[Rfam]
RNA sequence: AGCUUUGCGCAGUGGCAGUAUCAUAACCAAUGAGGUUUAUCCGAGGCGCGAUUAUUGCUAAUUAAAAAUCUUCACAACUAACUGACCCCUAGACUCAAAAACUGAGUUAAUGUCUGCUCUAACCAUUAACUUUGUUUUUCUUUUGUUUCCAUAGAAA
Number, nucleotide and partner (000 for none) at each position: 001a000002g000003c000004u000005u000006u000007g000008c000009g000010c000011a000012g000013u000014g000015g000016c000017a000018g000019u000020a052021u051022c050023a000024u048025a000026a000027c046028c045029a000030a000031u000032g000033a000034g042035g041036u000037u000038u000039a000040u000041c035042c034043g000044a000045g028046g027047c000048g024049c000050g022051a021052u020053u000054a000055u000056u000057g000058c000059u000060a000061a000062u000063u000064a000065a000066a000067a000068a000069u000070c000071u000072u000073c000074a000075c000076a000077a000078c000079u000080a000081a000082c000083u000084g000085a000086c000087c000088c000089c000090u000091a000092g000093a000094c000095u000096c000097a139098a138099a137100a136101a135102c134103u000104g132105a131106g130107u129108u128109a127110a126111u125112g124113u000114c000115u000116g000117c000118u000119c000120u000121a000122a000123c000124c112125a111126u110127u109128a108129a107130c106131u105132u104133u000134g102135u101136u100137u099138u098139u097140c000141u000142u000143u000144u000145g000146u157147u156148u155149c154150c000151a000152u000153a000154g149155a148156a147157a146
Description: Shown here is a 157-nucleotide sequence from Catagonus wagneri, a member of the family "U4 spliceosomal RNA". Lineage of the source: Eukaryota > Bilateria > Teleostomi > Tetrapoda > Catagonus. Its Rfam clan is "U4 clan". It is annotated as a spliceosomal small nuclear RNA. About the family: U4 small nuclear RNA (U4 snRNA) is a component of the major U2-dependent spliceosome. The literature on the family includes a 2019 paper in Science by Charenton et al., "Mechanism of 5' splice site transfer for human spliceosome activation". A search with the family's covariance model found it, with a score of 64 bits.